[Rfam]
Annotation
Rfam assigns this 166-nucleotide RNA sequence from Bacillus anthracis to the family "Manganese Mn2+ riboswitch aptamer (yybP-ykoY)". NCBI's taxonomy places the organism under Bacteria, Bacillota, Caryophanales, Bacillaceae, Bacillus anthracis. Pairs were carried over by alignment from the consensus structure.
RNA sequence: CAUAUCUCCAAAGGGGAGUAGCGUCCAAGAAUAUUUCUUGGAAACAAAGUCGUCAUUACGUAGAACUUAGUUCUUCCGGCUUUGUUGGCAUUUUCAUUACAUAUGUCUAGCAAGACCUUUGCCUAUUAACGGCAGAGGUCUUUUUUGCAUUCAUUGCCAAAUUCUU
Numbered sequence: 001c002a003u004a005u006c007u008c009c010a011a012a013g014g015g016g017a018g019u020a021g022c023g024u025c026c027a028a029g030a031a032u033a034u035u036u037c038u039u040g041g042a043a044a045c046a047a048a049g050u051c052g053u054c055a056u057u058a059c060g061u062a063g064a065a066c067u068u069a070g071u072u073c074u075u076c077c078g079g080c081u082u083u084g085u086u087g088g089c090a091u092u093u094u095c096a097u098u099a100c101a102u103a104u105g106u107c108u109a110g111c112a113a114g115a116c117c118u119u120u121g122c123c124u125a126u127u128a129a130c131g132g133c134a135g136a137g138g139u140c141u142u143u144u145u146u147g148c149a150u151u152c153a154u155u156g157c158c159a160a161a162u163u164c165u166u
Base pairs, nucleotide, nucleotide: 025041026040027039043086044085045084046083047082048081049080050079051078052077060076062074063073064072087165088164090162091161092160093159
Rfam describes the family as follows. This RNA was originally discovered in E. coli during a large scale screen and was named SraF. The family was later found to exist upstream of related families of protein genes in many bacteria, including the the yybP and ykoK genes in B. subtilis. The specific functions of these proteins are unknown, but this structured RNA element may be involved in their genetic regulation as a riboswitch.